[Rfam]
RNA sequence: UAAGUCUGUCGGAUAAUCGCGGCUGCAAGCGUCGAAAGACCGCAGGUGAGGAAAGUCCGAGCUUCUCAGGGCAGAGUGCCGGAUAACGUCCGGUGGAGGCGACUCCAAGGCCAGUGCAACAGAAAUAAACCGCCUGCUUCGUCAGGUAAGGGUGGAAAGGCGAGGUAAGAGCUCACCGCUCCUCUGGUAACAGAGGAGGCUCUGUAAACCCCACUCGGAAGCAAGACCGCAUAUAAGACGAUACGUCGGCCCGGCGUGUUUUAGGGUAGGUCGCUCGAUCCUGCUGGCAACAGCAGGGCUAGAUAGAUGAUUAUCGUUUCCGGUUUUCCGGAUUCACAUAACUCGGCUUACAGACAGGCUUACAUC
Number, nucleotide and partner (000 for none) at each position: 001u362002a361003a360004g359005u358006c357007u356008g355009u354010c353011g351012g315013a314014u313015a312016a311017u310018c309019g000020c048021g047022g000023c045024u044025g043026c042027a000028a000029g000030c000031g000032u000033c000034g000035a000036a000037a000038g000039a000040c000041c000042g026043c025044a024045g023046g000047u021048g020049a000050g000051g000052a000053a349054a348055g347056u000057c346058c345059g344060a343061g342062c221063u220064u219065c218066u000067c000068a000069g252070g251071g250072c249073a000074g216075a215076g214077u213078g212079c093080c092081g091082g090083a089084u000085a000086a000087c000088g000089u083090c082091c081092g080093g079094u108095g106096g105097a104098g103099g000100c000101g000102a000103c098104u097105c096106c095107a000108a094109g211110g210111c000112c000113a000114g209115u208116g205117c204118a203119a000120c000121a000122g000123a000124a000125a000126u000127a000128a000129a000130c151131c150132g147133c146134c145135u144136g143137c000138u000139u000140c000141g000142u000143c136144a135145g134146g133147u132148a000149a000150g131151g130152g000153u000154g000155g000156a000157a000158a000159g177160g176161c000162g174163a173164g172165g000166u000167a000168a000169g000170a000171g000172c164173u163174c162175a000176c160177c159178g200179c198180u197181c196182c195183u194184c193185u192186g191187g000188u000189a000190a000191c186192a185193g184194a183195g182196g181197a180198g179199g000200c178201u000202c000203u118204g117205u116206a000207a000208a115209c114210c110211c109212c078213a077214c076215u075216c074217g000218g065219a064220a063221g062222c000223a000224a000225g272226a271227c270228c269229g000230c000231a000232u000233a000234u263235a262236a261237g260238a259239c258240g000241a000242u000243a257244c256245g255246u254247c253248g000249g072250c071251c070252c069253g247254g246255c245256g244257u243258g239259u238260u237261u236262u235263a234264g000265g000266g000267u000268a000269g228270g227271u226272c225273g000274c000275u000276c000277g000278a000279u298280c297281c296282u295283g294284c293285u292286g291287g000288c000289a000290a000291c286292a285293g284294c283295a282296g281297g280298g279299c000300u000301a000302g000303a000304u000305a000306g000307a000308u000309g018310a017311u016312u015313a014314u013315c012316g000317u000318u000319u000320c000321c000322g000323g000324u000325u000326u000327u000328c000329c000330g000331g000332a000333u000334u000335c000336a000337c000338a000339u000340a000341a000342c061343u060344c059345g058346g057347c055348u054349u053350a000351c011352a000353g010354a009355c008356a007357g006358g005359c004360u003361u002362a001363c000364a000365u000366c000
Shown here is a 366-nucleotide RNA sequence from Pseudocoprococcus catus, a member of the family "Bacterial RNase P class A". Pairs were carried over by alignment from the consensus structure, which is taken from published work. It scores 300 bits against the family's covariance model. The organism belongs to Pseudocoprococcus, within Bacteria. It is annotated as a ribozyme. Ribonuclease P (RNase P) is a ubiquitous endoribonuclease, found in archaea, bacteria and eukarya as well as chloroplasts and mitochondria.